[Rfam]
Rfam assigns this 113-nucleotide sequence from Hydrogenophaga crassostreae to the family "SAH (S-adenosyl-L-homocysteine) riboswitch aptamer". Taxonomically the source falls in Hydrogenophaga (Bacteria, Pseudomonadati, Betaproteobacteria, Comamonadaceae). The match comes from Rfam's covariance-model search (42 bits).
RNA sequence: GCUCUCAAGGAGCGCUGCAGCACCCGCCCGAUACGGGCCGGUGUCAGGCUUGAGUCACAGGCAUCGCACAGAUACCUGCCGGUUUCUCCGGCUUCCAACGGCGCUCACCAGCU
Numbered sequence: 001g002c003u004c005u006c007a008a009g010g011a012g013c014g015c016u017g018c019a020g021c022a023c024c025c026g027c028c029c030g031a032u033a034c035g036g037g038c039c040g041g042u043g044u045c046a047g048g049c050u051u052g053a054g055u056c057a058c059a060g061g062c063a064u065c066g067c068a069c070a071g072a073u074a075c076c077u078g079c080c081g082g083u084u085u086c087u088c089c090g091g092c093u094u095c096c097a098a099c100g101g102c103g104c105u106c107a108c109c110a111g112c113u
Stems, first nucleotide, its partner, number of pairs: 004054005021043004026038004

A reference for the family is Wang et al. (2008), "Riboswitches that sense S-adenosylhomocysteine and activate genes involved in coenzyme recycling", Mol Cell.